A member of the RNA family "Small nucleolar RNA U49" from Anisodus acutangulus, 65 nucleotides long. The family has 5 seed sequences and 340 matches in Rfam 15.1. The source organism's lineage runs through Eukaryota, Embryophyta, Mesangiospermae, eudicotyledons and Anisodus. Rfam classes the family as a C/D-box small nucleolar RNA. The family is grouped with related families in Rfam's "SNORD49 clan". For this family Rfam cites "Multiple snoRNA gene clusters from Arabidopsis" (Brown et al., RNA, 2001).
RNA sequence: CACCAAUGAGGAAGAUAUCUCAAGAAUAGGAAGUGCUGUAUGACACUUUAAACAGCAGCGGCAGU
Numbered sequence: 001c002a003c004c005a006a007u008g009a010g011g012a013a014g015a016u017a018u019c020u021c022a023a024g025a026a027u028a029g030g031a032a033g034u035g036c037u038g039u040a041u042g043a044c045a046c047u048u049u050a051a052a053c054a055g056c057a058g059c060g061g062c063a064g065u
Stems, first nucleotide, its partner, number of pairs: 014059001030049006